[Rfam]
RNA: Archaeal RNase P
RNA sequence: GUGAGGCCGCUGGCGGCUACGGGCCCGUAAGGGCCUGAGGAAGCUCCACCCUCCCCGCGGUCCGGGGUCCCGCGAGGGACCGGGUUGAGAGCCCGGGCUCCGGCACAGAAACGAGACCCGGCCCGGGAAGCUAGGAAGGAGAUGGGCUCCCGGCGACGGGGCCCUAUCCGGAGCGAUGAACCGGGUUCGGGCUGAAACGGCCGUUCCCCCGGGGCGCAAGGCGCGGGGCCGAUGCCGGCCGCGGAAGGCCCCCGAGGUCCGCUUAGCCAAAUGCCGCCGAAGUACAGAAGGUGGGCUACAGCGGCCUCAC
Numbered sequence: 001g002u003g004a005g006g007c008c009g010c011u012g013g014c015g016g017c018u019a020c021g022g023g024c025c026c027g028u029a030a031g032g033g034c035c036u037g038a039g040g041a042a043g044c045u046c047c048a049c050c051c052u053c054c055c056c057g058c059g060g061u062c063c064g065g066g067g068u069c070c071c072g073c074g075a076g077g078g079a080c081c082g083g084g085u086u087g088a089g090a091g092c093c094c095g096g097g098c099u100c101c102g103g104c105a106c107a108g109a110a111a112c113g114a115g116a117c118c119c120g121g122c123c124c125g126g127g128a129a130g131c132u133a134g135g136a137a138g139g140a141g142a143u144g145g146g147c148u149c150c151c152g153g154c155g156a157c158g159g160g161g162c163c164c165u166a167u168c169c170g171g172a173g174c175g176a177u178g179a180a181c182c183g184g185g186u187u188c189g190g191g192c193u194g195a196a197a198c199g200g201c202c203g204u205u206c207c208c209c210c211g212g213g214g215c216g217c218a219a220g221g222c223g224c225g226g227g228g229c230c231g232a233u234g235c236c237g238g239c240c241g242c243g244g245a246a247g248g249c250c251c252c253c254g255a256g257g258u259c260c261g262c263u264u265a266g267c268c269a270a271a272u273g274c275c276g277c278c279g280a281a282g283u284a285c286a287g288a289a290g291g292u293g294g295g296c297u298a299c300a301g302c303g304g305c306c307u308c309a310c
Base pairs, nucleotide, nucleotide: 001310002309003308005306006305007304008303009302010301011300012278013277014276015275016274017273020037021036022035023034024033025032026031042297043296044295046294047293048292049291050290051216053214054213056243057242058241059240060239062212063211064210065209066208067080068079069078070077071076081095082094083093084092085091096207097206101203102202103201104200117191118190119189120187121186122185123184124183125182126181220260221259222257226251227250228249229248230247